[Rfam]
Nucleotides: 229
Base pairs, nucleotide, nucleotide: 005086006085007084008083009082010081011080012079013078014077015076016075017074020041021040022039023038026035027034028033045052046051055067056066057065058064089227090226092224096217097216098215099214100213101212105193106192107191108190109189110188111187112186113185114184115183116181118150119149120148121147125142126141127140128139129138130137154178155177156176158175159174160173161172162171195205196204197203
Number, partner (000 for none) and nucleotide at each position: 001000g002000a003000c004000u005086u006085c007084g008083u009082c010081u011080c012079u013078c014077g015076a016075g017074c018000a019000a020041g021040c022039u023038u024000a025000a026035g027034c028033c029000g030000a031000u032000a033028g034027g035026u036000g037000u038023a039022g040021g041020c042000g043000u044000a045052g046051c047000g048000a049000a050000a051046g052045c053000g054000a055067g056066u057065c058064u059000u060000a061000a062000u063000a064058g065057g066056g067055c068000g069000a070000c071000u072000g073000a074017g075016u076015u077014c078013g079012a080011g081010g082009g083008a084007u085006g086005a087000g088000a089227c090226c091000c092224g093000a094000a095000g096217c097216c098215g099214g100213g101212u102000g103000a104000u105193c106192u107191a108190g109189c110188c111187a112186u113185g114184a115183g116181c117000a118150g119149g120148u121147u122000g123000a124000a125142g126141g127140u128139g129138c130137g131000g132000u133000a134000a135000c136000a137130c138129g139128c140127a141126c142125u143000g144000g145000a146000g147121g148120a149119c150118c151000g152000a153000a154178c155177c156176c157000a158175c159174g160173u161172c162171u163000g164000u165000u166000g167000a168000a169000a170000a171162a172161g173160a174159c175158g176156g177155g178154g179000a180000u181116g182000a183115c184114u185113u186112g187111u188110g189109g190108c191107u192106a193105g194000g195205g196204g197203u198000g199000a200000a201000a202000g203197g204196c205195c206000a207000a208000u209000c210000a211000a212101a213100c214099c215098c216097g217096g218000a219000a220000a221000u222000a223000g224092c225000u226090g227089g228000u229000u

The family of this 229-nucleotide part of an RNA from Maricaulis maris is "Bacterial large subunit ribosomal RNA". Clan: LSU clan. The base pairs follow the family's consensus structure, which is taken from published work. Gene Ontology terms of the family: structural constituent of ribosome and ribosome. The match comes from Rfam's covariance-model search (2776 bits).